[Rfam]
RNA sequence: AGUACAGUUAAAGCGCCUGUGCAAAUAAAUAUUUGUAUUUGAAGAUUAAAGGUUAAUAUAUGAGUGGCCUUUAUAGAGUGCAAUAUAUGUAUUUGUAGACGAGGAGGAUAGUGAUCGAAUAGAUCGGCGGAUGCUAUCCCGGAUGUGGCUCAUUCGUUAGCUUAUUAAGUAAAACAUUAGGGUGACUUAAUGGACAAAGUUAAUAAGAUCGCCAGAA
Numbered sequence: 001a002g003u004a005c006a007g008u009u010a011a012a013g014c015g016c017c018u019g020u021g022c023a024a025a026u027a028a029a030u031a032u033u034u035g036u037a038u039u040u041g042a043a044g045a046u047u048a049a050a051g052g053u054u055a056a057u058a059u060a061u062g063a064g065u066g067g068c069c070u071u072u073a074u075a076g077a078g079u080g081c082a083a084u085a086u087a088u089g090u091a092u093u094u095g096u097a098g099a100c101g102a103g104g105a106g107g108a109u110a111g112u113g114a115u116c117g118a119a120u121a122g123a124u125c126g127g128c129g130g131a132u133g134c135u136a137u138c139c140c141g142g143a144u145g146u147g148g149c150u151c152a153u154u155c156g157u158u159a160g161c162u163u164a165u166u167a168a169g170u171a172a173a174a175c176a177u178u179a180g181g182g183u184g185a186c187u188u189a190a191u192g193g194a195c196a197a198a199g200u201u202a203a204u205a206a207g208a209u210c211g212c213c214a215g216a217a
Base pairs, nucleotide, nucleotide: 020097021096022095023094024093025092026091027090029088030087031086032085106139107138108137109136110135115127116126117125118124140156141155142154143153144152145151161207162206163205164204165203166202167201175192176191177190178189179188180187181186
RNA: glmS glucosamine-6-phosphate activated ribozyme aptamer